Overview
Fluoride riboswitch aptamer (crcB RNA motif): a 69-nucleotide RNA from Paraburkholderia saeva. On this family, see Baker et al., Science 2012: "Widespread genetic switches and toxicity resistance proteins for fluoride". Rfam 15.1 lists 2,293 matches to the family in 1,982 species. The base pairs follow the family's consensus structure, which is taken from published work.
RNA sequence: CUGCGGGCCGGAGAUGGCAUUCUCCGUUGUCCUUAAACCGCCCCUGUGGCUGAUGAUGCCUGCCCUCAU
Numbered sequence: 001c002u003g004c005g006g007g008c009c010g011g012a013g014a015u016g017g018c019a020u021u022c023u024c025c026g027u028u029g030u031c032c033u034u035a036a037a038c039c040g041c042c043c044c045u046g047u048g049g050c051u052g053a054u055g056a057u058g059c060c061u062g063c064c065c066u067c068a069u
Base pairs, nucleotide, nucleotide: 010025011024012023013022016060017059018058019057020056021055040050041049042048